[Rfam]
RNA sequence: ACCAUACUACGGUGCAUUGAGGUGGAAAGUAAACGAUGACCCAAGCUGAACUCUGGGUUAAAAUACGUAUCAAAAUGCAAAACCAUUUCCUGGCCUGGAAACUUUUCCGGGUCAGGAUACUUU
Numbered sequence: 001a002c003c004a005u006a007c008u009a010c011g012g013u014g015c016a017u018u019g020a021g022g023u024g025g026a027a028a029g030u031a032a033a034c035g036a037u038g039a040c041c042c043a044a045g046c047u048g049a050a051c052u053c054u055g056g057g058u059u060a061a062a063a064u065a066c067g068u069a070u071c072a073a074a075a076u077g078c079a080a081a082a083c084c085a086u087u088u089c090c091u092g093g094c095c096u097g098g099a100a101a102c103u104u105u106u107c108c109g110g111g112u113c114a115g116g117a118u119a120c121u122u123u
Base pairs, nucleotide, nucleotide: 003038004037005036010035011034014030015029041048057071059069060068089116090115091114092113093112094111095110096109097108098107099106